[Rfam]
The record is an 84-nucleotide RNA sequence from Caenorhabditis remanei, which matches "SmY spliceosomal RNA" in Rfam.
A search with the family's covariance model found it, with a score of 59 bits.
The family has 61 seed sequences and 408 matches in Rfam 15.1.
Rfam classes the family as a spliceosomal small nuclear RNA.
RNA sequence: AUUUGCAACGCAAGUCAUUCAAGACCUUUCGCAAGAUCUUGAGUACAAUUUUUGGGAAACUCUGUUUAUUUUUUAAACAGGGUG
Numbered sequence: 001a002u003u004u005g006c007a008a009c010g011c012a013a014g015u016c017a018u019u020c021a022a023g024a025c026c027u028u029u030c031g032c033a034a035g036a037u038c039u040u041g042a043g044u045a046c047a048a049u050u051u052u053u054g055g056g057a058a059a060c061u062c063u064g065u066u067u068a069u070u071u072u073u074u075a076a077a078c079a080g081g082g083u084g
Base pairs, nucleotide, nucleotide: 022039023038024037026035027034028033059083060082061081062080063079064078065077066076067075